Annotation: A member of the RNA family "Small nucleolar RNA SNORA53", 249 nucleotides long. The snoRNA ACA53 belongs to the H/ACA family of pseudouridylation guide snoRNAs. The sequence is in the family's curated seed alignment. Gene Ontology terms of the family: nucleolus and RNA processing.

RNA sequence: AACAUGCUUCCUUAGAUCCACCUUUGUGGAUGAAUCUUGAACUGAGUUCCACUUGUAAACUUCUUGUUUCUUGUGGUUCCAGUAGUCAAAGAAACAUCCAGCAACUUUUUUGGUUGUAUAGUCAAAGGUGCUUGAGUCAUUGGCAUGUAAGAGAAAUAUACCUGCAUGUUAGUCUAACGUAUCUGAUAGAAAUGACAUGCAUUUACUGGCCAUUUGUUACUAUCAGGACUCGACUCGUGUGCGGACAUU
Numbered sequence: 001a002a003c004a005u006g007c008u009u010c011c012u013u014a015g016a017u018c019c020a021c022c023u024u025u026g027u028g029g030a031u032g033a034a035u036c037u038u039g040a041a042c043u044g045a046g047u048u049c050c051a052c053u054u055g056u057a058a059a060c061u062u063c064u065u066g067u068u069u070c071u072u073g074u075g076g077u078u079c080c081a082g083u084a085g086u087c088a089a090a091g092a093a094a095c096a097u098c099c100a101g102c103a104a105c106u107u108u109u110u111u112g113g114u115u116g117u118a119u120a121g122u123c124a125a126a127g128g129u130g131c132u133u134g135a136g137u138c139a140u141u142g143g144c145a146u147g148u149a150a151g152a153g154a155a156a157u158a159u160a161c162c163u164g165c166a167u168g169u170u171a172g173u174c175u176a177a178c179g180u181a182u183c184u185g186a187u188a189g190a191a192a193u194g195a196c197a198u199g200c201a202u203u204u205a206c207u208g209g210c211c212a213u214u215u216g217u218u219a220c221u222a223u224c225a226g227g228a229c230u231c232g233a234c235u236c237g238u239g240u241g242c243g244g245a246c247a248u249u
Stems, first nucleotide, its partner, number of pairs: 002148007011136005019130008027100006035092004041083004046079001049076004055070001057069004101117006162244005169237001171235004182227008193219003197215001199210002